TPP riboswitch aptamer (THI element): a 106-nucleotide sequence from Planococcus sp. PAMC 21323.
Vitamin B(1) in its active form thiamin pyrophosphate (TPP) is an essential coenzyme that is synthesised by coupling of pyrimidine and thiazole moieties in bacteria.
Lineage of the source: Bacteria > Bacillota > Bacilli > Caryophanales > Planococcus.
Gene Ontology term of the family: thiamine pyrophosphate binding.
[Rfam]
RNA sequence: UUUCUGCACUAGGGGUGCCCACUUUGGCUGAGAUGCAAGCGCAAGCUUCGAUCCCUCAAAACUCGAUCAGGAUAAUACCUGCGUGAGGAAGUGCGGCGCAUUUCUG
Numbered sequence: 001u002u003u004c005u006g007c008a009c010u011a012g013g014g015g016u017g018c019c020c021a022c023u024u025u026g027g028c029u030g031a032g033a034u035g036c037a038a039g040c041g042c043a044a045g046c047u048u049c050g051a052u053c054c055c056u057c058a059a060a061a062c063u064c065g066a067u068c069a070g071g072a073u074a075a076u077a078c079c080u081g082c083g084u085g086a087g088g089a090a091g092u093g094c095g096g097c098g099c100a101u102u103u104c105u106g
Stems, first nucleotide, its partner, number of pairs: 006094005011056004016050001017028003035049001037048004062087004068081004